[Rfam]
RNA sequence: GGCGUGUCAUUGUAAUAGUAAUUGAACUUAGUACGAGAGGAACCGUUCAUUCACGUAAUUGGUAUUUACAUCUGUUUGAUAAGACAAUGUUGUGAAGCUACCACGUGUUGGAUUAUGGCUGAACGCCUCUAAGUCAGAAUCCGUGCUAGAUACAAUGACCUUGUCCCGCGCAUUUACCGUUGUGUCGAAAUAAGGCGUAAGCCUGUGAACCAUUAUAAGCGAUUGAUUGUGUGCUGAGUGGAAAGACUUGGUGCAUAAAGUUGCAUAUAGUAUUGAAAAUAUGUGCGGGGGUAAAUCCUUUGCAGACGACUUGAAUCAGAGCGGGGUACUGUAAGCAGUAGAGUAGCCUUGUUGCUACGAUCUGCUGAGGUUCAUCCCUUGUUCUAAAGAUUUGU
Numbered sequence: 001g002g003c004g005u006g007u008c009a010u011u012g013u014a015a016u017a018g019u020a021a022u023u024g025a026a027c028u029u030a031g032u033a034c035g036a037g038a039g040g041a042a043c044c045g046u047u048c049a050u051u052c053a054c055g056u057a058a059u060u061g062g063u064a065u066u067u068a069c070a071u072c073u074g075u076u077u078g079a080u081a082a083g084a085c086a087a088u089g090u091u092g093u094g095a096a097g098c099u100a101c102c103a104c105g106u107g108u109u110g111g112a113u114u115a116u117g118g119c120u121g122a123a124c125g126c127c128u129c130u131a132a133g134u135c136a137g138a139a140u141c142c143g144u145g146c147u148a149g150a151u152a153c154a155a156u157g158a159c160c161u162u163g164u165c166c167c168g169c170g171c172a173u174u175u176a177c178c179g180u181u182g183u184g185u186c187g188a189a190a191u192a193a194g195g196c197g198u199a200a201g202c203c204u205g206u207g208a209a210c211c212a213u214u215a216u217a218a219g220c221g222a223u224u225g226a227u228u229g230u231g232u233g234c235u236g237a238g239u240g241g242a243a244a245g246a247c248u249u250g251g252u253g254c255a256u257a258a259a260g261u262u263g264c265a266u267a268u269a270g271u272a273u274u275g276a277a278a279a280u281a282u283g284u285g286c287g288g289g290g291g292u293a294a295a296u297c298c299u300u301u302g303c304a305g306a307c308g309a310c311u312u313g314a315a316u317c318a319g320a321g322c323g324g325g326g327u328a329c330u331g332u333a334a335g336c337a338g339u340a341g342a343g344u345a346g347c348c349u350u351g352u353u354g355c356u357a358c359g360a361u362c363u364g365c366u367g368a369g370g371u372u373c374a375u376c377c378c379u380u381g382u383u384c385u386a387a388a389g390a391u392u393u394g395u
Stems, first nucleotide, its partner, number of pairs: 006159008016148004021051001023049005052107005060100003067094004073086005109143003116136005165289007293393005299313001302310001318385006324378003328371002335365004340361001343358005
The family of this 395-nucleotide part of an RNA from Melampsora laricis-populina is "Eukaryotic large subunit ribosomal RNA".
Its family is annotated with ribosome and structural constituent of ribosome in the Gene Ontology.
Rfam's curators put it in the seed alignment.